[Rfam]
Rfam assigns this 112-nucleotide RNA sequence from Empedobacter falsenii to the family "Flavo-1 RNA". Rfam classes the family as a small RNA. The family's consensus secondary structure is taken from published work.
RNA sequence: CUUAAACCCCGCGUUAGGGAUAGUAGUGGAAAUCCUUUUGUAAGAAUUGUAUUUUCUAUAAUCACUUCUAAUCUUCUUCUACAAAAGAUUGGAACGGAUAGCCCGACCGAGC
Numbered sequence: 001c002u003u004a005a006a007c008c009c010c011g012c013g014u015u016a017g018g019g020a021u022a023g024u025a026g027u028g029g030a031a032a033u034c035c036u037u038u039u040g041u042a043a044g045a046a047u048u049g050u051a052u053u054u055u056c057u058a059u060a061a062u063c064a065c066u067u068c069u070a071a072u073c074u075u076c077u078u079c080u081a082c083a084a085a086a087g088a089u090u091g092g093a094a095c096g097g098a099u100a101g102c103c104c105g106a107c108c109g110a111g112c
Stems, first nucleotide, its partner, number of pairs: 017104003021100002026095002031090004037085005043080003